[Rfam]
RNA sequence: CAGGUGGAAUCCGAAAAACCUUAAAAAGAGUAGGAA
Numbered sequence: 001c002a003g004g005u006g007g008a009a010u011c012c013g014a015a016a017a018a019c020c021u022u023a024a025a026a027a028g029a030g031u032a033g034g035a036a
Stems, first nucleotide, its partner, number of pairs: 002021004010035003